[Rfam]
Shown here is a 58-nucleotide RNA sequence from Trypanosoma cruzi, a member of the family "Small nucleolar RNA TBR6". TBR6 was one of seventeen snoRNAs identified in Trypanosoma brucei. Together with TBR2, TBR12 and TBR4 it is a part of snoRNA gene cluster that is tandemly repeated. It is annotated as a C/D-box small nucleolar RNA. The base pairs follow the family's consensus structure, which was predicted with RNAfold. Taxonomically the source falls in Trypanosoma cruzi (Eukaryota, Euglenozoa, Metakinetoplastina, Trypanosomatida). A search with the family's covariance model found it, with a score of 48 bits.
RNA sequence: CGCCGUGACAGUGAUGACCACAAGCUGUUUGCACAUUUGCCGACCCUGCGUGAGUGAC
Numbered sequence: 001c002g003c004c005g006u007g008a009c010a011g012u013g014a015u016g017a018c019c020a021c022a023a024g025c026u027g028u029u030u031g032c033a034c035a036u037u038u039g040c041c042g043a044c045c046c047u048g049c050g051u052g053a054g055u056g057a058c
Base pairs, nucleotide, nucleotide: 001056002055003054011034012033013032016029017028018027040052041050042049